The record is a 114-nucleotide RNA from Bacillus sp. NRRL B-14911, which matches "SAM riboswitch aptamer (S box leader)" in Rfam.
The organism belongs to Bacillus, within Bacteria.
RNA sequence: UUCUUAUCAAGAGAGGCAGAGGGUAUGGCCCUGUGAAGCCUCAGCAACCUUCAAUGGAUAAUAUUGAAAAGGUGCUAAUUCCUGCAGGUCCUUUAUGGGCUUGAAAGAUAAGAA
Numbered sequence: 001u002u003c004u005u006a007u008c009a010a011g012a013g014a015g016g017c018a019g020a021g022g023g024u025a026u027g028g029c030c031c032u033g034u035g036a037a038g039c040c041u042c043a044g045c046a047a048c049c050u051u052c053a054a055u056g057g058a059u060a061a062u063a064u065u066g067a068a069a070a071g072g073u074g075c076u077a078a079u080u081c082c083u084g085c086a087g088g089u090c091c092u093u094u095a096u097g098g099g100c101u102u103g104a105a106a107g108a109u110a111a112g113a114a
Base pairs, nucleotide, nucleotide: 001114002113003112004111005110006109007108008107013042014041015040016039017038021031022030023029027082028081043076044075045074046073048072049071050068051067052066053065054064055063080106085103086102087101088100089099090098